[Rfam]
RNA sequence: GCCGGAGCCUUGCUCUGUAACCUUCGGGGGCUUUCACCAGCUGAACAGGGAGCUGUCUGGACCAGCAUAGGGUGCUUGCGGCGUUGACGUGGUGCUCUGCUUGGCUGUGUGUCGGAGGCCUCCGGGUGCCCCCUUGCAGAAGGGGCGCGCCCCCUCCGUUAAAGUAGAGGAACUGGGUCAGGCCGGCAACGGAGCAGCCCACCUCGCGCACGUCUGCCGUUGCAGAACCACACCGCGGAGCCUGUCAUCACCUGCGCCCCAGGCGAUCCUGUGAAGCUUU
Numbered sequence: 001g002c003c004g005g006a007g008c009c010u011u012g013c014u015c016u017g018u019a020a021c022c023u024u025c026g027g028g029g030g031c032u033u034u035c036a037c038c039a040g041c042u043g044a045a046c047a048g049g050g051a052g053c054u055g056u057c058u059g060g061a062c063c064a065g066c067a068u069a070g071g072g073u074g075c076u077u078g079c080g081g082c083g084u085u086g087a088c089g090u091g092g093u094g095c096u097c098u099g100c101u102u103g104g105c106u107g108u109g110u111g112u113c114g115g116a117g118g119c120c121u122c123c124g125g126g127u128g129c130c131c132c133c134u135u136g137c138a139g140a141a142g143g144g145g146c147g148c149g150c151c152c153c154c155u156c157c158g159u160u161a162a163a164g165u166a167g168a169g170g171a172a173c174u175g176g177g178u179c180a181g182g183c184c185g186g187c188a189a190c191g192g193a194g195c196a197g198c199c200c201a202c203c204u205c206g207c208g209c210a211c212g213u214c215u216g217c218c219g220u221u222g223c224a225g226a227a228c229c230a231c232a233c234c235g236c237g238g239a240g241c242c243u244g245u246c247a248u249c250a251c252c253u254g255c256g257c258c259c260c261a262g263g264c265g266a267u268c269c270u271g272u273g274a275a276g277c278u279u280u
Stems, first nucleotide, its partner, number of pairs: 021028002068254002074249001076247001078245002088237007096226005103218003107213006113158006124152006131145002133142003159163001164207002168204003174201005183192003

The record is a 280-nucleotide RNA sequence from Wallacemonas collosoma, which matches "Protozoan signal recognition particle RNA" in Rfam. Pairs were carried over by alignment from the consensus structure, which is taken from published work. It is one of the family's seed sequences. The family's RNA type in Rfam is non-coding RNA gene. A reference for the family is Wild et al. (2002), "Towards the structure of the mammalian signal recognition particle", Curr Opin Struct Biol. The family is grouped with related families in Rfam's "SRP clan".